[Rfam]
RNA sequence: CAAAUCCACCACGGGUGCUCGCGGCAGCGGGCUGAGAUGGGGCUGAAGCCGCUCCGACCGUAGAACCUGAUCCGGGUAAUGCCGGCGCAGGAAGCGAGGAGCAGUUCCGUG
Numbered sequence: 001c002a003a004a005u006c007c008a009c010c011a012c013g014g015g016u017g018c019u020c021g022c023g024g025c026a027g028c029g030g031g032c033u034g035a036g037a038u039g040g041g042g043c044u045g046a047a048g049c050c051g052c053u054c055c056g057a058c059c060g061u062a063g064a065a066c067c068u069g070a071u072c073c074g075g076g077u078a079a080u081g082c083c084g085g086c087g088c089a090g091g092a093a094g095c096g097a098g099g100a101g102c103a104g105u106u107c108c109g110u111g
Base pairs, nucleotide, nucleotide: 006099007098009096011061012060013059014058017032018031019030020029021028039055040054041053042052043051066091067090068089069088072085073084074083075082

Shown here is a 111-nucleotide RNA from Nocardioides daedukensis, a member of the family "TPP riboswitch aptamer (THI element)". Vitamin B(1) in its active form thiamin pyrophosphate (TPP) is an essential coenzyme that is synthesised by coupling of pyrimidine and thiazole moieties in bacteria. The base pairs follow the family's consensus structure, which is taken from published work.